[Rfam]
RNA sequence: GCACGUCUUCGGGGCGGGGUGUGAUUCCCUACCGGCGGUAUAGCCCGCGAGCCAUUAAUGGCAUGAUUUGGUGAAAUUCCAAGGCCGACAGUAAAGUCUGGAUGAAAGAAGAUAAAU
Numbered sequence: 001g002c003a004c005g006u007c008u009u010c011g012g013g014g015c016g017g018g019g020u021g022u023g024a025u026u027c028c029c030u031a032c033c034g035g036c037g038g039u040a041u042a043g044c045c046c047g048c049g050a051g052c053c054a055u056u057a058a059u060g061g062c063a064u065g066a067u068u069u070g071g072u073g074a075a076a077u078u079c080c081a082a083g084g085c086c087g088a089c090a091g092u093a094a095a096g097u098c099u100g101g102a103u104g105a106a107a108g109a110a111g112a113u114a115a116a117u
Base pairs, nucleotide, nucleotide: 005113006112007111008110009109010108017029018028019027031097032096033087034086035048036047037046038045043085044084053061067083068082069081070080071079089100090099091098

Shown here is a 117-nucleotide sequence from Clostridium cellulovorans, a member of the family "FMN riboswitch aptamer (RFN element)". A search with the family's covariance model found it, with a score of 112 bits. The base pairs follow the family's consensus structure, which is taken from published work. The source organism's lineage runs through Bacteria, Bacillota, Eubacteriales, Clostridium and Clostridium cellulovorans. From the family's description: The RFN element is a highly conserved domain that is found frequently in the 5'-untranslated regions of prokaryotic mRNAs that encode for flavin mononucleotide (FMN) biosynthesis and transport proteins.